The record is a 65-nucleotide sequence, which matches "MDR-NUDIX RNA" in Rfam. The sequence is in the family's curated seed alignment.
[Rfam]
RNA sequence: AUUAUGAUUUGCACGCAAGCGAAUCCUCUACUCGGAAAUGUUCGGACGAGCCGAACCACUAACGA
Numbered sequence: 001a002u003u004a005u006g007a008u009u010u011g012c013a014c015g016c017a018a019g020c021g022a023a024u025c026c027u028c029u030a031c032u033c034g035g036a037a038a039u040g041u042u043c044g045g046a047c048g049a050g051c052c053g054a055a056c057c058a059c060u061a062a063c064g065a
Stems, first nucleotide, its partner, number of pairs: 006025007032065003040056006